[Rfam]
RNA sequence: UCACAAGUUCAAGGCCAUAGCAGAAGCACCCAUGGUGCAGCUCUGUCAGAUUCCAAUGAAUCUGUGAGCUCUGCU
Numbered sequence: 001u002c003a004c005a006a007g008u009u010c011a012a013g014g015c016c017a018u019a020g021c022a023g024a025a026g027c028a029c030c031c032a033u034g035g036u037g038c039a040g041c042u043c044u045g046u047c048a049g050a051u052u053c054c055a056a057u058g059a060a061u062c063u064g065u066g067a068g069c070u071c072u073g074c075u
Stems, first nucleotide, its partner, number of pairs: 013043001014041002019075006026038003047064007

Rfam assigns this 75-nucleotide sequence from Alligator sinensis to the family "Mammalian CPEB3 ribozyme". The source organism's lineage runs through Eukaryota, Gnathostomata, Amniota, Alligatorinae and Alligator. Rfam's curators write: The mammalian CPEB3 ribozyme is a self cleaving RNA located in the second intron of the CPEB3 gene which belongs to a family of genes regulating messenger RNA polyadenylation. Gene Ontology term of the family: RNA nuclease activity.